[Rfam]
RNA: Fluoride riboswitch aptamer (crcB RNA motif)
Organism: Mageeibacillus indolicus
RNA sequence: AUGAAAAAAGGGAAUGAAGUUCUCCCUUGGGCAACCUGAACCGCUUUUUAAGCUGAUGACUUCUGCGAUAAA
Numbered sequence: 001a002u003g004a005a006a007a008a009a010g011g012g013a014a015u016g017a018a019g020u021u022c023u024c025c026c027u028u029g030g031g032c033a034a035c036c037u038g039a040a041c042c043g044c045u046u047u048u049u050a051a052g053c054u055g056a057u058g059a060c061u062u063c064u065g066c067g068a069u070a071a072a
Stems, first nucleotide, its partner, number of pairs: 010026004016063006043053003